The record is an 87-nucleotide RNA sequence from Methanofervidicoccus abyssi, which matches "Selenocysteine transfer RNA" in Rfam.
A search with the family's covariance model found it, with a score of 66 bits.
The organism belongs to Methanofervidicoccus, within Archaea.
Gene Ontology term of the family: triplet codon-amino acid adaptor activity.

[Rfam]
RNA sequence: GGCGCCGAGUGCCGUGCCUGGUGGCACGGGGCGGACUUCAGAUCCGUCAGUUCUUAUGAACUCGGGGUUCGAUUCCCCCUCGGCGCC
Number, nucleotide and partner (000 for none) at each position: 001g087002g086003c085004g084005c083006c082007g081008a080009g079010u000011g000012c029013c028014g027015u026016g025017c000018c024019u000020g000021g000022u000023g000024g018025c016026a015027c014028g013029g012030g048031g047032c046033g045034g044035a043036c000037u000038u000039c000040a000041g000042a000043u035044c034045c033046g032047u031048c030049a000050g061051u060052u059053c058054u000055u000056a000057u000058g053059a052060a051061c050062u000063c000064g078065g077066g076067g075068u000069u000070c000071g000072a000073u000074u000075c067076c066077c065078c064079c009080u008081c007082g006083g005084c004085g003086c002087c001